[Rfam]
RNA sequence: CCUCCUUUCAUGGUGGGGAUCGGGCUUGUGGUACCACUCCCCUUAAUGUACGGAGGAAGAGGGAAAGGGCUCUGGCCCCCUCCAUGUCAUGUCUUCUGUGCCGGCAGUUUCCCAUCCGCUGGUUCUAUCCUCAAGCGCCGGGACACUG
Numbered sequence: 001c002c003u004c005c006u007u008u009c010a011u012g013g014u015g016g017g018g019a020u021c022g023g024g025c026u027u028g029u030g031g032u033a034c035c036a037c038u039c040c041c042c043u044u045a046a047u048g049u050a051c052g053g054a055g056g057a058a059g060a061g062g063g064a065a066a067g068g069g070c071u072c073u074g075g076c077c078c079c080c081u082c083c084a085u086g087u088c089a090u091g092u093c094u095u096c097u098g099u100g101c102c103g104g105c106a107g108u109u110u111c112c113c114a115u116c117c118g119c120u121g122g123u124u125c126u127a128u129c130c131u132c133a134a135g136c137g138c139c140g141g142g143a144c145a146c147u148g
Stems, first nucleotide, its partner, number of pairs: 001056005015042005022035002082140001085137003101122005107116001
RNA: Small nucleolar RNA SNORA57